[Rfam]
RNA sequence: AACUUUCUGUAUACGAGCCAAGAUUUCAUCAGACACCAGACCAUCAGGACAGAUGAGACUUCCAAGAUAAGUAAAGCG
Numbered sequence: 001a002a003c004u005u006u007c008u009g010u011a012u013a014c015g016a017g018c019c020a021a022g023a024u025u026u027c028a029u030c031a032g033a034c035a036c037c038a039g040a041c042c043a044u045c046a047g048g049a050c051a052g053a054u055g056a057g058a059c060u061u062c063c064a065a066g067a068u069a070a071g072u073a074a075a076g077c078g
Base pairs, nucleotide, nucleotide: 003076004075005074006073008071010069011068012067017062020061021060022059024058025057026056027055028054029053030052

A member of the RNA family "mir-3492 microRNA precursor family" from Schistosoma japonicum, 78 nucleotides long. Rfam links the family to the GO terms miRNA-mediated post-transcriptional gene silencing and RISC complex. It scores 64 bits against the family's covariance model.